This 193-nucleotide RNA from Rotaria sp. Silwood1 belongs to the Rfam family "U2 spliceosomal RNA". The organism belongs to Rotaria, within Eukaryota. The family is grouped with related families in Rfam's "U2 clan". U2 is a small nuclear RNA (snRNA) component of the spliceosome (involved in pre-mRNA splicing). Complementary binding between U2 snRNA (in an area lying towards the 5' end but 3' to hairpin I) and the branchpoint sequence (BPS) of the intron results the bulging out of an unpaired adenosine, on the BPS, which initiates a nucleophilic attack at the intronic 5' splice site, thus starting the first of two transesterification reactions that mediate splicing. The family's RNA type in Rfam is spliceosomal small nuclear RNA. The base pairs follow the family's consensus structure, which is taken from published work. Gene Ontology terms of the family: pre-mRNA branch point binding, U2 snRNP and mRNA branch site recognition.
[Rfam]
RNA sequence: AUCGCUUCUCGGCCUUUUCGGCUAAGAUCAAAGUGUAGUAUCUGUUCUCGACGGUUUGAAAGCCGGCGCUGCUUCCGUUGAAGUCAGGCUCUUUCAAGCGGAUUUUUGGAUAUCGGCUGGGACCCGAGUUCACUUGGACCCGUGCCACGGAUCGUCUCAGCACUGCAGUGCCGUCGAGUUCGGUCCACUCCUA
Numbered sequence: 001a002u003c004g005c006u007u008c009u010c011g012g013c014c015u016u017u018u019c020g021g022c023u024a025a026g027a028u029c030a031a032a033g034u035g036u037a038g039u040a041u042c043u044g045u046u047c048u049c050g051a052c053g054g055u056u057u058g059a060a061a062g063c064c065g066g067c068g069c070u071g072c073u074u075c076c077g078u079u080g081a082a083g084u085c086a087g088g089c090u091c092u093u094u095c096a097a098g099c100g101g102a103u104u105u106u107u108g109g110a111u112a113u114c115g116g117c118u119g120g121g122a123c124c125c126g127a128g129u130u131c132a133c134u135u136g137g138a139c140c141c142g143u144g145c146c147a148c149g150g151a152u153c154g155u156c157u158c159a160g161c162a163c164u165g166c167a168g169u170g171c172c173g174u175c176g177a178g179u180u181c182g183g184u185c186c187a188c189u190c191c192u193a
Base pairs, nucleotide, nucleotide: 007027008026009025011023012022013021014020049068050067052065053064054063071084072083073082074081075080115146116145117144119140120139125136126135127134128133149186150185151184152183153182154181156178157177158176160174161173